mir-544 microRNA precursor family: a 99-nucleotide RNA sequence from Camelus dromedarius. Its family is annotated with RISC complex and miRNA-mediated post-transcriptional gene silencing in the Gene Ontology. Pairs were carried over by alignment from the consensus structure, which was predicted with RNAalifold. A reference for the family is Chiang et al. (2010), "Mammalian microRNAs: experimental evaluation of novel and previously annotated genes", Genes Dev.
RNA sequence: AUCACCUGGGGAAUCUUGUUAAACUGCAGACUCUGAUUUAGUAGUACUGGGGAGCGGCUUGAGAGUCUGCAUUUUUAACAAACUCCCAGGUGAUGCCAG
Numbered sequence: 001a002u003c004a005c006c007u008g009g010g011g012a013a014u015c016u017u018g019u020u021a022a023a024c025u026g027c028a029g030a031c032u033c034u035g036a037u038u039u040a041g042u043a044g045u046a047c048u049g050g051g052g053a054g055c056g057g058c059u060u061g062a063g064a065g066u067c068u069g070c071a072u073u074u075u076u077a078a079c080a081a082a083c084u085c086c087c088a089g090g091u092g093a094u095g096c097c098a099g
Stems, first nucleotide, its partner, number of pairs: 003092003009086003016081006022074002026070005032064003